[Rfam]
RNA sequence: AUUUAUUUGAUUGAUAUAGAACACUCAUAUCGAUAAAAGAAUUUUAACCAUUU
Numbered sequence: 001a002u003u004u005a006u007u008u009g010a011u012u013g014a015u016a017u018a019g020a021a022c023a024c025u026c027a028u029a030u031c032g033a034u035a036a037a038a039g040a041a042u043u044u045u046a047a048c049c050a051u052u053u
Stems, first nucleotide, its partner, number of pairs: 011033007
The record is a 53-nucleotide RNA from Musa balbisiana, which matches "Plastid-atpF group II-D1 intron" in Rfam. The match comes from Rfam's covariance-model search (62 bits). The literature on the family includes a 2023 paper in Plant Commun by Richter et al., "Retrograde signaling in plants: A critical review focusing on the GUN pathway and beyond". The family has 49 seed sequences and 1,372 matches in Rfam 15.1. Lineage of the source: Eukaryota > Streptophytina > Embryophyta > Mesangiospermae > Musa. Rfam links the family to the GO term Group II intron splicing. About the family: Plastid atpF is a non-coding RNA (ncRNA) recognised in plastids. It has been reported in the intron group II-D1 region of ATP synthase (atpF) genes.